The record is an 87-nucleotide RNA from Cephalotus follicularis, which matches "Small nucleolar RNA R11/Z151" in Rfam. The family's consensus secondary structure was predicted with PFOLD. The source organism's lineage runs through Eukaryota, Embryophyta, Pentapetalae, rosids and Cephalotus. A search with the family's covariance model found it, with a score of 84 bits.
RNA sequence: GGGCUGAUGAUGAUAAUACUAUAAUCUUAGCGGAUUUCAGUGAGACCAAUUCGUCUAUGAACUGAUUUGUUACACACACUGAAGCCU
Dot-bracket structure: (((((.............................................................................)))))